[Rfam]
Rfam assigns this 72-nucleotide RNA from Skermanella aerolata to the family "Makes More Granules Regulator RNA (mmgR)". The pairing is the family consensus, mapped onto this sequence. SuhB later renamed mmgR (makes more granules regulator) was a putative non-coding RNA found multiple times in the Agrobacterium tumefaciens genome and related alpha-proteobacteria. Other non-coding RNAs uncovered in the same analysis include: speF, ybhL, metA, and serC.Several studies inSinorhizobium meliloti showed that suhB element is indeed a non-coding RNA:firstly it was detected on Northern blot and called Sm8RNA, secondly in an RNAseq study referred to as SmelC689.The mutant phenotype's (strain lacking the small RNA) cytoplasm contains higher content of polyhydroxybutyrate (PBH)storage granules than wild type strain. The sRNA is required to limit the PBH intracellular accumulation when the nitrogen-fixing Sinorhizobium meliloti is under condition of surplus carbon in relation to nitrogen. The source organism's lineage runs through Bacteria, Pseudomonadota, Alphaproteobacteria, Azospirillaceae and Skermanella.
RNA sequence: CUGCAUCGCCCUUGUUGGGCGUUUCCUCCCUAGACUCAGGCCGCUUUCGAAGCGGCCUUUUUUCUGCCAGAU
Numbered sequence: 001c002u003g004c005a006u007c008g009c010c011c012u013u014g015u016u017g018g019g020c021g022u023u024u025c026c027u028c029c030c031u032a033g034a035c036u037c038a039g040g041c042c043g044c045u046u047u048c049g050a051a052g053c054g055g056c057c058u059u060u061u062u063u064c065u066g067c068c069a070g071a072u
Stems, first nucleotide, its partner, number of pairs: 008020004039057008
Dot-bracket structure: .......((((.....))))..................((((((((...))))))))...............